[Rfam]
RNA: Small nucleolar RNA SNORD22
Organism: Furnarius figulus
RNA sequence: UCCCCAUGAGGAAAUCUCCCAUGUCUGACCCCCCUGGUGGGUCCAGGACCUGCUAAGGUGGAACCCACUGGUGCUCCCAGGGGGGACACGAGGACAGCAAGUCCUAAAGGGACUGUCUGAGGGGG
Number, nucleotide and partner (000 for none) at each position: 001u124002c123003c122004c121005c000006a000007u000008g000009a000010g000011g000012a000013a000014a000015u000016c000017u000018c000019c000020c000021a000022u000023g000024u000025c000026u000027g000028a000029c000030c000031c000032c000033c000034c000035u000036g000037g000038u000039g000040g000041g000042u000043c000044c000045a000046g000047g000048a000049c000050c000051u000052g000053c000054u000055a000056a000057g000058g000059u000060g000061g000062a000063a000064c000065c000066c000067a000068c000069u000070g000071g000072u000073g000074c000075u000076c000077c000078c000079a000080g000081g000082g000083g000084g000085g000086a000087c000088a000089c000090g000091a000092g000093g000094a000095c000096a000097g000098c000099a000100a000101g000102u000103c000104c000105u000106a000107a000108a000109g000110g000111g000112a000113c000114u000115g000116u000117c000118u000119g000120a000121g004122g003123g002124g001125g000